[Rfam]
RNA sequence: UGACGGAAGAGCACCACAAGGAGUGGAGUGUGCGGCUUAAUUUGACUCAACGCGGGACAACUUACCAUCGCGGAUGGCCGGGAGAGUGUAGUACACGAUAGGUCAAGGAGUGGUGCAUGGCCGUUAUCGACUAGUGGGGUGACCUUUUGGUUAAUUCCGCUAAGUAGUGAGAUCUCUGGGAACCAAUUUAUUGGUACGACAUGUGUUAAAAACACAGGAAGAAAGAGCCAAGAACAGGUCAGUGAUGCCCUUAGGCGUGAUGGGCUGCACGCGCACUACAGUGGUCACAACAGAGAAUUAGAAGAAAUAAAUGUGAUCGAGAGGGAAUGAGCACUGUAAUGUGCACAGGAACGAGGAAUUGCUAGUAAUCGUUGCCUCAUUAAGGAGCGAUGAAUGAGUCCCUGCUCUUUGUACACACCGCCCGUCGUUAUCGAAGAUGAAACCAGGUGCGAACAAGCUAAAGCGAGUGAGUGCAGGGUUUUAGAUCUGAUACAAGUCGUAACAAGGCAGCUGUAGGUGAACCUGUAGCUGGAUCAAUA
Numbered sequence: 001u002g003a004c005g006g007a008a009g010a011g012c013a014c015c016a017c018a019a020g021g022a023g024u025g026g027a028g029u030g031u032g033c034g035g036c037u038u039a040a041u042u043u044g045a046c047u048c049a050a051c052g053c054g055g056g057a058c059a060a061c062u063u064a065c066c067a068u069c070g071c072g073g074a075u076g077g078c079c080g081g082g083a084g085a086g087u088g089u090a091g092u093a094c095a096c097g098a099u100a101g102g103u104c105a106a107g108g109a110g111u112g113g114u115g116c117a118u119g120g121c122c123g124u125u126a127u128c129g130a131c132u133a134g135u136g137g138g139g140u141g142a143c144c145u146u147u148u149g150g151u152u153a154a155u156u157c158c159g160c161u162a163a164g165u166a167g168u169g170a171g172a173u174c175u176c177u178g179g180g181a182a183c184c185a186a187u188u189u190a191u192u193g194g195u196a197c198g199a200c201a202u203g204u205g206u207u208a209a210a211a212a213c214a215c216a217g218g219a220a221g222a223a224a225g226a227g228c229c230a231a232g233a234a235c236a237g238g239u240c241a242g243u244g245a246u247g248c249c250c251u252u253a254g255g256c257g258u259g260a261u262g263g264g265c266u267g268c269a270c271g272c273g274c275a276c277u278a279c280a281g282u283g284g285u286c287a288c289a290a291c292a293g294a295g296a297a298u299u300a301g302a303a304g305a306a307a308u309a310a311a312u313g314u315g316a317u318c319g320a321g322a323g324g325g326a327a328u329g330a331g332c333a334c335u336g337u338a339a340u341g342u343g344c345a346c347a348g349g350a351a352c353g354a355g356g357a358a359u360u361g362c363u364a365g366u367a368a369u370c371g372u373u374g375c376c377u378c379a380u381u382a383a384g385g386a387g388c389g390a391u392g393a394a395u396g397a398g399u400c401c402c403u404g405c406u407c408u409u410u411g412u413a414c415a416c417a418c419c420g421c422c423c424g425u426c427g428u429u430a431u432c433g434a435a436g437a438u439g440a441a442a443c444c445a446g447g448u449g450c451g452a453a454c455a456a457g458c459u460a461a462a463g464c465g466a467g468u469g470a471g472u473g474c475a476g477g478g479u480u481u482u483a484g485a486u487c488u489g490a491u492a493c494a495a496g497u498c499g500u501a502a503c504a505a506g507g508c509a510g511c512u513g514u515a516g517g518u519g520a521a522c523c524u525g526u527a528g529c530u531g532g533a534u535c536a537a538u539a
Base pairs, nucleotide, nucleotide: 001415002414003412004411005410007409008408009407010406011405012404013403016399017398020362022360023359024358025279027277028276029275030274031273032272033271034270035268036267041056042055043054044053065263066262067261068260069259070258071257075105076104077103078102079101086096087095088094089093109251110250112249113248114247115246118245119243120239121238122237123235124234125233130168131167132166133165135163136145137144138143148159149158150157174227175226176225177224191196200218202216203215204214205213206212207211283318284317285316286315287314288313323352328347329346331344332343333342334341368391369390370389371388372387373386375384420503423499424498426496429492430491431490432489433488435486438483439482440481441480442479443478444477447474448473449472450471453468454467457464458463508531509530510529511528512527513526514525515524516523517522
RNA: Microsporidia small subunit ribosomal RNA, nucleotides 829 to 1367